Shown here is a 179-nucleotide sequence from Crotophaga sulcirostris, a member of the family "Small Cajal body specific RNA 16". A reference for the family is Darzacq et al. (2002), "Cajal body-specific small nuclear RNAs: a novel class of 2'-O-methylation and pseudouridylation guide RNAs", EMBO J. Rfam links the family to the GO terms nucleolus and RNA processing. scaRNAs are a specific class of small nuclear RNAs which localise to the Cajal bodies and guide the modification of RNA polymerase II transcribed spliceosomal RNAs U1, U2, U4, U5 and U12. The organism belongs to Crotophaga, within Eukaryota. Rfam classes the family as a small Cajal body RNA. A search with the family's covariance model found it, with a score of 108 bits.

RNA sequence: UGGGGCUGGGGAAAGGCUGCUGGGUGGUGGGGCCACUGGCCCAGCCACGUCCCAGCCAGCCCCACCCGCGCCCCAGAGCAGCUCCCAGACGGGCUCCUCGCGGGGCCGCGUCCCAUGCAGUAACAGGUGUGAACAUCCAUGAAGCCUUUUGGUGGUCAUGUAUGAUACUGCGUACAACA
Numbered sequence: 001u002g003g004g005g006c007u008g009g010g011g012a013a014a015g016g017c018u019g020c021u022g023g024g025u026g027g028u029g030g031g032g033c034c035a036c037u038g039g040c041c042c043a044g045c046c047a048c049g050u051c052c053c054a055g056c057c058a059g060c061c062c063c064a065c066c067c068g069c070g071c072c073c074c075a076g077a078g079c080a081g082c083u084c085c086c087a088g089a090c091g092g093g094c095u096c097c098u099c100g101c102g103g104g105g106c107c108g109c110g111u112c113c114c115a116u117g118c119a120g121u122a123a124c125a126g127g128u129g130u131g132a133a134c135a136u137c138c139a140u141g142a143a144g145c146c147u148u149u150u151g152g153u154g155g156u157c158a159u160g161u162a163u164g165a166u167a168c169u170g171c172g173u174a175c176a177a178c179a
Base pairs, nucleotide, nucleotide: 003073004072005071006070008067009066010065015061016060017059018058019056020055021054022053024052026046027045028044030042032040033039034038085105086104088101090100091099092098115173116172117171118170119169120168121167122166124164125163130158131157132156134154135153136152137151141148142147